[Rfam]
The family of this 90-nucleotide RNA sequence from Pokkaliibacter plantistimulans is "t44 RNA".

RNA sequence: ACAUCAACAGUGUUAAAUCACACAUGUGCCGACACAGCAUCCGAGGGUGCCCUGAAAAGGGUCGGAGACUGGGGUACAUGGAGGCCUAAC
Numbered sequence: 001a002c003a004u005c006a007a008c009a010g011u012g013u014u015a016a017a018u019c020a021c022a023c024a025u026g027u028g029c030c031g032a033c034a035c036a037g038c039a040u041c042c043g044a045g046g047g048u049g050c051c052c053u054g055a056a057a058a059g060g061g062u063c064g065g066a067g068a069c070u071g072g073g074g075u076a077c078a079u080g081g082a083g084g085c086c087u088a089a090c
Base pairs, nucleotide, nucleotide: 023080024079025078026077027076028075029074030073035071036070037069040066041065042064043063049062050061051060052059053058
The match comes from Rfam's covariance-model search (70 bits). A reference for the family is Tjaden et al. (2002), "Transcriptome analysis of Escherichia coli using high-density oligonucleotide probe arrays", Nucleic Acids Res. Taxonomically the source falls in Pokkaliibacter (Bacteria, Pseudomonadati, Pseudomonadota, Gammaproteobacteria). Pairs were carried over by alignment from the consensus structure, which was predicted with LocARNA.